[Rfam]
RNA sequence: UGAUACCAGGGGCGAAAGGCCUACAUCCACGCGAGUUUACUCGUAAGUGGAUGAAAGGCUUUGAGACCCGCCACGACAGGAGCAUAAAAGUGGGAUGUUAAUCCCACGAUAUGCGAAUGUUGGGGAGAAUUGUGGGAGUGCGUAGCACGGAACAAUUCGUAGGUAUCA
Numbered sequence: 001u002g003a004u005a006c007c008a009g010g011g012g013c014g015a016a017a018g019g020c021c022u023a024c025a026u027c028c029a030c031g032c033g034a035g036u037u038u039a040c041u042c043g044u045a046a047g048u049g050g051a052u053g054a055a056a057g058g059c060u061u062u063g064a065g066a067c068c069c070g071c072c073a074c075g076a077c078a079g080g081a082g083c084a085u086a087a088a089a090g091u092g093g094g095a096u097g098u099u100a101a102u103c104c105c106a107c108g109a110u111a112u113g114c115g116a117a118u119g120u121u122g123g124g125g126a127g128a129a130u131u132g133u134g135g136g137a138g139u140g141c142g143u144a145g146c147a148c149g150g151a152a153c154a155a156u157u158c159g160u161a162g163g164u165a166u167c168a
Stems, first nucleotide, its partner, number of pairs: 001168007010068002013065001016061003020057001022055001024053007031044005072124001074122005082114004090107007127158007138148004
Dot-bracket structure: (((((((..((.(..(((.(.(.((((((((((((....)))))..))))))).).).)))...).))...(.(((((...((((....(((((((....)))))))...))))...))))).)..(((((((....((((...))))...)))))))...)))))))

Clostridiales-1 RNA: a 168-nucleotide RNA from Oscillospiraceae bacterium Marseille-Q3528. The organism belongs to Oscillospiraceae, within Bacteria. Rfam classes the family as a small RNA.